[Rfam]
EcpR1: a 109-nucleotide RNA sequence from Devosia epidermidihirudinis. A search with the family's covariance model found it, with a score of 70 bits.

Nucleotides: 109
Stems, first nucleotide, its partner, number of pairs: 004048007015038006050104011
Number, partner (000 for none) and nucleotide at each position: 001000g002000c003000u004048c005047c006046c007045u008044g009043c010042g011000c012000u013000a014000u015038c016037c017036u018035g019034g020033g021000u022000c023000c024000g025000c026000c027000g028000c029000a030000a031000c032000u033020c034019c035018u036017g037016g038015g039000a040000u041000c042010c043009g044008u045007a046006g047005g048004g049000c050104g051103g052102c053101u054100g055099g056098u057097c058096c059095g060094g061000a062000u063000g064000u065000g066000g067000a068000c069000a070000g071000a072000g073000u074000g075000g076000c077000c078000u079000c080000u081000u082000c083000g084000a085000c086000a087000u088000g089000c090000c091000a092000c093000u094060c095059c096058g097057g098056a099055u100054c101053a102052g103051c104050c105000a106000c107000u108000u109000u